uup RNA: a 50-nucleotide sequence from Cytobacillus solani. Rfam classes the family as a cis-regulatory element. The match comes from Rfam's covariance-model search (45 bits). NCBI's taxonomy places the organism under Bacteria, Bacillati, Bacilli, Caryophanales, Cytobacillus. Pairs were carried over by alignment from the consensus structure, which is taken from published work.
RNA sequence: GAGAGAUUUGCUCCGCACAAAUGUAUACGAUGAAGCAUUGUGUCAGGAGC
Numbered sequence: 001g002a003g004a005g006a007u008u009u010g011c012u013c014c015g016c017a018c019a020a021a022u023g024u025a026u027a028c029g030a031u032g033a034a035g036c037a038u039u040g041u042g043u044c045a046g047g048a049g050c
Stems, first nucleotide, its partner, number of pairs: 011049004015044001017041003
Dot-bracket structure: ..........(((((.(((...................)))..).)))).